[Rfam]
Notes
A member of the RNA family "Purine riboswitch aptamer" from Paenibacillus hemerocallicola, 102 nucleotides long. It scores 82 bits against the family's covariance model.
RNA sequence: UAUAUAGAUCCUUAUGUUUCUCGUAUAAACCCGGGGAUAUGGCCCGGAAGUCUCUACCCAAAAACCUUAAAUUUUUGGACUACGAGCGAACUGAAAGUGGAA
Numbered sequence: 001u002a003u004a005u006a007g008a009u010c011c012u013u014a015u016g017u018u019u020c021u022c023g024u025a026u027a028a029a030c031c032c033g034g035g036g037a038u039a040u041g042g043c044c045c046g047g048a049a050g051u052c053u054c055u056a057c058c059c060a061a062a063a064a065c066c067u068u069a070a071a072u073u074u075u076u077g078g079a080c081u082a083c084g085a086g087c088g089a090a091c092u093g094a095a096a097g098u099g100g101a102a
Stems, first nucleotide, its partner, number of pairs: 018088001020086006031047005058078007

The family's consensus secondary structure is taken from published work.